[Rfam]
RNA: DUF3800-I RNA
RNA sequence: UUGUAUUACCGGAGAGAAAUCUCGUCAGGUCGAUAGCUCAAUGUCGAUUUUAUUAAAUUAAGUGUAUGUUAAGUACACCCGCUUGAGCUGGGGAGAGACUACUAGAUAGUCUCUUUUUUUUUUAGUU
Numbered sequence: 001u002u003g004u005a006u007u008a009c010c011g012g013a014g015a016g017a018a019a020u021c022u023c024g025u026c027a028g029g030u031c032g033a034u035a036g037c038u039c040a041a042u043g044u045c046g047a048u049u050u051u052a053u054u055a056a057a058u059u060a061a062g063u064g065u066a067u068g069u070u071a072a073g074u075a076c077a078c079c080c081g082c083u084u085g086a087g088c089u090g091g092g093g094a095g096a097g098a099c100u101a102c103u104a105g106a107u108a109g110u111c112u113c114u115u116u117u118u119u120u121u122u123u124a125g126u127u
Base pairs, nucleotide, nucleotide: 008030009029010028011025012023013022014021034090035089036088037087038086039085043083045081046080047058048057049056062079063077064076065075066074067073091117092116093115094114095113096112097111098110099109100108